Record summary
The record is a 335-nucleotide part of an RNA from Lactococcus garvieae, which matches "Bacterial large subunit ribosomal RNA" in Rfam. On this family, see Cannone et al., BMC Bioinformatics 2002: "The comparative RNA web (CRW) site: an online database of comparative sequence and structure information for ribosomal, intron, and other RNAs". NCBI's taxonomy places the organism under Bacteria, Bacillati, Lactobacillales, Lactococcus, Lactococcus garvieae. Rfam 15.1 lists 51,934 matches to the family in 10,816 species. A search with the family's covariance model found it, with a score of 2920 bits.
RNA sequence: CGAGAGAACUCUCGUUAAGGAACUCGGCAAAAUGACCCCGUAACUUCGGGAGAAGGGGUGCUGUAGAAAUACAGCCGCAGUGAAAAGAUCCAAGCAACUGUUUAUCAAAAACACAGCUCUCUGCUAAACCGCAAGGUGAUGUAUAGGGGGUGACGCCUGCCCGGUGCUGGAAGGUUAAGAGGAGGGGUUAGACAUUAGUCGAAGCUCUGAAUUGAAGCCCCAGUAAACGGCGGCCGUAACUAUAACGGUCCUAAGGUAGCGAAAUUCCUUGUCGGGUAAGUUCCGACCCGCACGAAAGGCGUAAUGAUUUGGAUACUGUCUCAACGAGAGACUCG
Numbered sequence: 001c002g003a004g005a006g007a008a009c010u011c012u013c014g015u016u017a018a019g020g021a022a023c024u025c026g027g028c029a030a031a032a033u034g035a036c037c038c039c040g041u042a043a044c045u046u047c048g049g050g051a052g053a054a055g056g057g058g059u060g061c062u063g064u065a066g067a068a069a070u071a072c073a074g075c076c077g078c079a080g081u082g083a084a085a086a087g088a089u090c091c092a093a094g095c096a097a098c099u100g101u102u103u104a105u106c107a108a109a110a111a112c113a114c115a116g117c118u119c120u121c122u123g124c125u126a127a128a129c130c131g132c133a134a135g136g137u138g139a140u141g142u143a144u145a146g147g148g149g150g151u152g153a154c155g156c157c158u159g160c161c162c163g164g165u166g167c168u169g170g171a172a173g174g175u176u177a178a179g180a181g182g183a184g185g186g187g188u189u190a191g192a193c194a195u196u197a198g199u200c201g202a203a204g205c206u207c208u209g210a211a212u213u214g215a216a217g218c219c220c221c222a223g224u225a226a227a228c229g230g231c232g233g234c235c236g237u238a239a240c241u242a243u244a245a246c247g248g249u250c251c252u253a254a255g256g257u258a259g260c261g262a263a264a265u266u267c268c269u270u271g272u273c274g275g276g277u278a279a280g281u282u283c284c285g286a287c288c289c290g291c292a293c294g295a296a297a298g299g300c301g302u303a304a305u306g307a308u309u310u311g312g313a314u315a316c317u318g319u320c321u322c323a324a325c326g327a328g329a330g331a332c333u334c335g
Base pairs, nucleotide, nucleotide: 001335002334003333004332009330010329011328012327013326014325015324016323018321019320020319035059036058037057038056039055044049060075061074062073063072064071065070076080088314089313090312091311092310093309094308095306096305099113100112101111116151117150118149119148120147121146122145123144124141128137129136130135154301155300156299157298159231160230161229164228165227166224167223168222169221170220173219174218175217179213180212184208185207186206187205188204191200192199232250233249234248235247236246237245251255261288271287272286273285274284275283276282